The family of this 104-nucleotide RNA sequence from Paraburkholderia ginsengiterrae is "Burkholderia sRNA 1". Rfam describes the family as follows. Identified by RNA-seq, RACE and Northern blot. Strongly expressed in biofilm. Rfam classes the family as a small RNA. Pairs were carried over by alignment from the consensus structure, which was predicted with RNAfold. It scores 87 bits against the family's covariance model. Gene Ontology term of the family: bacterial biofilm matrix.
RNA sequence: AGUUCUGAUGCACCACGAAUUUUGCAGGUGGAGAACGAGGAGACAUGAGGCACUAAGUGCCCAGACGAAAGCGCCGUUGGAUUGAUAUCCAGCGGCGCUUUUUA
Number, nucleotide and partner (000 for none) at each position: 001a000002g036003u035004u034005c033006u000007g000008a000009u032010g000011c030012a029013c028014c027015a000016c024017g023018a022019a000020u000021u000022u018023u017024g016025c000026a000027g014028g013029u012030g011031g000032a009033g005034a004035a003036c002037g000038a000039g000040g066041a000042g000043a000044c000045a000046u063047g062048a000049g061050g060051c059052a058053c057054u000055a000056a000057g053058u052059g051060c050061c049062c047063a046064g000065a000066c040067g000068a101069a100070a099071g098072c097073g096074c095075c094076g093077u092078u091079g090080g089081a088082u000083u000084g000085a000086u000087a000088u081089c080090c079091a078092g077093c076094g075095g074096c073097g072098c071099u070100u069101u068102u000103u000104a000
Lineage of the source: Bacteria > Pseudomonadati > Pseudomonadota > Burkholderiaceae > Paraburkholderia.